[Rfam]
RNA sequence: GUGGAGUGAGGUAGUAGAUUGUAUAGUUAGAGGGUAGUGAUUUGUGCCCUGUUGGAGAUAACUAUACAAUCUAUUGCCUUCCCUGC
Numbered sequence: 001g002u003g004g005a006g007u008g009a010g011g012u013a014g015u016a017g018a019u020u021g022u023a024u025a026g027u028u029a030g031a032g033g034g035u036a037g038u039g040a041u042u043u044g045u046g047c048c049c050u051g052u053u054g055g056a057g058a059u060a061a062c063u064a065u066a067c068a069a070u071c072u073a074u075u076g077c078c079u080u081c082c083c084u085g086c
Stems, first nucleotide, its partner, number of pairs: 001086004006081001008080020032049004050057001